[Rfam]
RNA sequence: CCUGUGGAGUGUCAUAGCAAACUGUAGUAGCGAGGUAGUGGCGAGACAGGACACGUAGAAGCAGGAA
Numbered sequence: 001c002c003u004g005u006g007g008a009g010u011g012u013c014a015u016a017g018c019a020a021a022c023u024g025u026a027g028u029a030g031c032g033a034g035g036u037a038g039u040g041g042c043g044a045g046a047c048a049g050g051a052c053a054c055g056u057a058g059a060a061g062c063a064g065g066a067a
Stems, first nucleotide, its partner, number of pairs: 001065005009054005022049003030042002
Dot-bracket structure: (((((...(((((........(((.....((.........))....))))))))......)))))..
A member of the RNA family "RAGATH-18 RNA" from Bacillus cereus, 67 nucleotides long. Rfam's curators write: Actinobacteria, Firmicutes, Fusobacteria, Thermotogae (1 example). NCBI's taxonomy places the organism under Bacteria, Bacillota, Caryophanales, Bacillaceae, Bacillus cereus. Pairs were carried over by alignment from the consensus structure, which is taken from published work. The family's RNA type in Rfam is small RNA.